[Rfam]
This 74-nucleotide sequence from Drosophila pseudoobscura belongs to the Rfam family "Small nucleolar RNA CD11". Rfam 15.1 lists 53 matches to the family in 25 species. Taxonomically the source falls in Drosophila pseudoobscura (Eukaryota, Eumetazoa, Bilateria, Altocrustacea). It is one of the family's seed sequences.

RNA sequence: UAAUCAUGCCAUGAUGAAUGAUUUAGCAGAAGAGUUCUUGAAGACUAUAUUCAUCACCCAAUCCUGAUCACUCA
Numbered sequence: 001u002a003a004u005c006a007u008g009c010c011a012u013g014a015u016g017a018a019u020g021a022u023u024u025a026g027c028a029g030a031a032g033a034g035u036u037c038u039u040g041a042a043g044a045c046u047a048u049a050u051u052c053a054u055c056a057c058c059c060a061a062u063c064c065u066g067a068u069c070a071c072u073c074a
Stems, first nucleotide, its partner, number of pairs: 001070001003068001029037003

For this family Rfam cites "Genome-wide analyses of two families of snoRNA genes from Drosophila melanogaster, demonstrating the extensive utilization of introns for coding of snoRNAs" (Huang et al., RNA, 2005).